Rfam assigns this 129-nucleotide sequence to the family "Small nucleolar RNA SNORA72". Rfam describes the family as follows. U72 is a member of the H/ACA class of snoRNAs. The snoRNA gene is located in intron 4 of the ribosomal L30 protein gene in human, mouse and chicken. The family has 29 seed sequences and 1,541 matches in Rfam 15.1. It is one of the family's seed sequences. Pairs were carried over by alignment from the consensus structure, which was predicted with PFOLD. On this family, see Ganot et al., Genes Dev 1997: "The family of box ACA small nucleolar RNAs is defined by an evolutionarily conserved secondary structure and ubiquitous sequence elements essential for RNA accumulation".
RNA sequence: CUGAGAAUAUCUUGCUGUUCUGAUUUUGUAAUAGGACAGGCUAUAAAGAUUGGCUAUAUUAAGGCCACGCACAUGUCCCCAGACUUAAUUCUUUCCCUAGGUCUGGUUUUAUAAACUCUGGUAAUAAAC
Numbered sequence: 001c002u003g004a005g006a007a008u009a010u011c012u013u014g015c016u017g018u019u020c021u022g023a024u025u026u027u028g029u030a031a032u033a034g035g036a037c038a039g040g041c042u043a044u045a046a047a048g049a050u051u052g053g054c055u056a057u058a059u060u061a062a063g064g065c066c067a068c069g070c071a072c073a074u075g076u077c078c079c080c081a082g083a084c085u086u087a088a089u090u091c092u093u094u095c096c097c098u099a100g101g102u103c104u105g106g107u108u109u110u111a112u113a114a115a116c117u118c119u120g121g122u123a124a125u126a127a128a129c
Base pairs, nucleotide, nucleotide: 003054015039016038017037018036019035020034021033064122065121066120067119069118079106080105081104082103083102084101085100086099087098